[Rfam]
RNA sequence: UCUGAAGUCUGGUGUAAAUACAGAGAAGCCUGGACUGCAGA
Numbered sequence: 001u002c003u004g005a006a007g008u009c010u011g012g013u014g015u016a017a018a019u020a021c022a023g024a025g026a027a028g029c030c031u032g033g034a035c036u037g038c039a040g041a
Base pairs, nucleotide, nucleotide: 001041002040003039004038006036007035008034009032011030012029013028